[Rfam]
RNA sequence: AGGCAGGAACUAAUUACAAUGUAGCCGUGAAGUGCUGCAUUGUCUUUGCCCCCUGCUCAGAAUAAAACUGUUUCCAUCUUAGCCCUGUGGGCCGUGGUGCUGCAGCCACCAGGGAUGCAUGGUCUCACACAU
Numbered sequence: 001a002g003g004c005a006g007g008a009a010c011u012a013a014u015u016a017c018a019a020u021g022u023a024g025c026c027g028u029g030a031a032g033u034g035c036u037g038c039a040u041u042g043u044c045u046u047u048g049c050c051c052c053c054u055g056c057u058c059a060g061a062a063u064a065a066a067a068c069u070g071u072u073u074c075c076a077u078c079u080u081a082g083c084c085c086u087g088u089g090g091g092c093c094g095u096g097g098u099g100c101u102g103c104a105g106c107c108a109c110c111a112g113g114g115a116u117g118c119a120u121g122g123u124c125u126c127a128c129a130c131a132u
Base pairs, nucleotide, nucleotide: 003056004055005054006053007052016043017042018041019040020039021038022037023036024035025034084113085112086111087110090107091106092105
RNA: Small nucleolar RNA SNORA63